[Rfam]
Nucleotides: 152
Stems, first nucleotide, its partner, number of pairs: 002019002005016003028069005033060006041052004084098001086096003101122002108115002126145006
Number, partner (000 for none) and nucleotide at each position: 001000c002019c003018u004000a005016c006015u007014g008000u009000a010000u011000u012000a013000c014007c015006g016005g017000c018003a019002g020000u021000u022000u023000u024000c025000u026000a027000c028069u029068c030067c031066g032065g033060c034059a035058u036057g037056c038055a039000u040000u041052a042051c043050c044049a045000g046000u047000a048000a049044u050043g051042g052041u053000u054000u055038u056037g057036u058035g059034u060033g061000g062000a063000g064000c065032c066031c067030g068029g069028a070000u071000g072000a073000c074000a075000a076000u077000g078000a079000a080000g081000c082000c083000c084098u085000u086096g087095g088094c089000c090000a091000u092000a093000a094088g095087c096086c097000u098084g099000a100000a101122g102121a103000g104000a105000g106000a107000a108115u109114c110000g111000u112000g113000a114109g115108a116000g117000g118000a119000c120000c121102u122101c123000a124000a125000c126145u127144c128143u129142g130141g131140g132000a133000g134000c135000a136000u137000c138000a139000a140131c141130c142129u143128g144127g145126a146000u147000g148000g149000g150000a151000g152000c